RNA sequence: ACACUUUUCAUUCAGGCGGAAAUGCCUAUAUCGGGCUCGCCGGCUCGUCCGGCUAUGGCGAUAAACUGUACCGUGCAAUAGGCACAGCGGACCCGGGGGCGGUACCCGGCGGCUCCACCAGAAACGGCCUUUCCCGCGCAAGGGGAGGGCCGGUCCUGACGGGGCCGAACUAGGAUCGACGUGUGUUGAAAAACGGCGCUUUCGCUCGGGCUGAGUAACCCGUUCAAGGCUCAAACUCAUAAGUGCCAACGAUAACGAAGCACUUGCUCUUGCAGCGUAAUUGAGGGCCUCACGGCCUGACAUUACCCUAACAGAACGCGGCUGGGCCAGCCGGGCAACAGAAUGGAUUCCA
Numbered sequence: 001a002c003a004c005u006u007u008u009c010a011u012u013c014a015g016g017c018g019g020a021a022a023u024g025c026c027u028a029u030a031u032c033g034g035g036c037u038c039g040c041c042g043g044c045u046c047g048u049c050c051g052g053c054u055a056u057g058g059c060g061a062u063a064a065a066c067u068g069u070a071c072c073g074u075g076c077a078a079u080a081g082g083c084a085c086a087g088c089g090g091a092c093c094c095g096g097g098g099g100c101g102g103u104a105c106c107c108g109g110c111g112g113c114u115c116c117a118c119c120a121g122a123a124a125c126g127g128c129c130u131u132u133c134c135c136g137c138g139c140a141a142g143g144g145g146a147g148g149g150c151c152g153g154u155c156c157u158g159a160c161g162g163g164g165c166c167g168a169a170c171u172a173g174g175a176u177c178g179a180c181g182u183g184u185g186u187u188g189a190a191a192a193a194c195g196g197c198g199c200u201u202u203c204g205c206u207c208g209g210g211c212u213g214a215g216u217a218a219c220c221c222g223u224u225c226a227a228g229g230c231u232c233a234a235a236c237u238c239a240u241a242a243g244u245g246c247c248a249a250c251g252a253u254a255a256c257g258a259a260g261c262a263c264u265u266g267c268u269c270u271u272g273c274a275g276c277g278u279a280a281u282u283g284a285g286g287g288c289c290u291c292a293c294g295g296c297c298u299g300a301c302a303u304u305a306c307c308c309u310a311a312c313a314g315a316a317c318g319c320g321g322c323u324g325g326g327c328c329a330g331c332c333g334g335g336c337a338a339c340a341g342a343a344u345g346g347a348u349u350c351c352a
Stems, first nucleotide, its partner, number of pairs: 039053005057206005068199002071196004083185003087182003093109005110167007207222004212233003319333004324351003
RNA: Alphaproteobacteria transfer-messenger RNA
Organism: Sphingobium sp.